The record is a 158-nucleotide RNA sequence from Ideonella sp. MAG2, which matches "FMN riboswitch aptamer (RFN element)" in Rfam.

RNA sequence: ACGCGUUCUCAGGGCGGGGUGAAAGUCCCCACCGGCGGUAUCUGCGCGCAAGUGCAGGAGCCCGCGAGCGCCCAGCACACCCCUUGGUGGGUUGGGGUCAGCAGAUCUGGUGCGAUGCCAGAGCCGACGGUCACAGUCCGGAUGAAAGAGAAACGCGC
Numbered sequence: 001a002c003g004c005g006u007u008c009u010c011a012g013g014g015c016g017g018g019g020u021g022a023a024a025g026u027c028c029c030c031a032c033c034g035g036c037g038g039u040a041u042c043u044g045c046g047c048g049c050a051a052g053u054g055c056a057g058g059a060g061c062c063c064g065c066g067a068g069c070g071c072c073c074a075g076c077a078c079a080c081c082c083c084u085u086g087g088u089g090g091g092u093u094g095g096g097g098u099c100a101g102c103a104g105a106u107c108u109g110g111u112g113c114g115a116u117g118c119c120a121g122a123g124c125c126g127a128c129g130g131u132c133a134c135a136g137u138c139c140g141g142a143u144g145a146a147a148g149a150g151a152a153a154c155g156c157g158c
Stems, first nucleotide, its partner, number of pairs: 003156004007151004017029003031137002033126002035065004060124002068102002106122005128140003
Dot-bracket structure: ..((((((((......(((.......))).[[((((((.....................[[))))..((...............................))...(((((.......)))))]])).(((.....]]))).......)))).))))..

The match comes from Rfam's covariance-model search (102 bits). NCBI's taxonomy places the organism under Bacteria, Pseudomonadati, Pseudomonadota, Betaproteobacteria, Ideonella.